The family of this 77-nucleotide RNA from Alligator mississippiensis is "Mammalian CPEB3 ribozyme". The base pairs follow the family's consensus structure, which is taken from published work.

RNA sequence: AGCAGCUGAUUAGGGGCCGUAGAAGCAUUCACAUUAUGACCCCUGUCAGAUACCUGGUAAUACCUGCAAAUUCUGCU
Numbered sequence: 001a002g003c004a005g006c007u008g009a010u011u012a013g014g015g016g017c018c019g020u021a022g023a024a025g026c027a028u029u030c031a032c033a034u035u036a037u038g039a040c041c042c043c044u045g046u047c048a049g050a051u052a053c054c055u056g057g058u059a060a061u062a063c064c065u066g067c068a069a070a071u072u073c074u075g076c077u
Base pairs, nucleotide, nucleotide: 013043014042015041016040018038019076020075021074022073023072024071025037027035047066048065049064051062052061